A member of the RNA family "Purine riboswitch aptamer" from Paenibacillus naphthalenovorans, 101 nucleotides long. A reference for the family is Mandal and Breaker (2004), "Adenine riboswitches and gene activation by disruption of a transcription terminator", Nat Struct Mol Biol. Taxonomically the source falls in Paenibacillus (Bacteria, Bacillati, Bacillota, Caryophanales). It scores 63 bits against the family's covariance model.
RNA sequence: CCUAAUAUUUACUCUACCGAUCGUAUAUCCUUGACAAUAUGGGUCAAGAGUUUCUACCAAGGAACCGCAAAUUCCUGGCUACGAACAGGGCGCCUUGCCGC
Numbered sequence: 001c002c003u004a005a006u007a008u009u010u011a012c013u014c015u016a017c018c019g020a021u022c023g024u025a026u027a028u029c030c031u032u033g034a035c036a037a038u039a040u041g042g043g044u045c046a047a048g049a050g051u052u053u054c055u056a057c058c059a060a061g062g063a064a065c066c067g068c069a070a071a072u073u074c075c076u077g078g079c080u081a082c083g084a085a086c087a088g089g090g091c092g093c094c095u096u097g098c099c100g101c
Stems, first nucleotide, its partner, number of pairs: 019086001021084005030048006058077001060076005
Dot-bracket structure: ..................(.(((((....((((((.......)))))).........(.(((((.......))))))..))))).)...............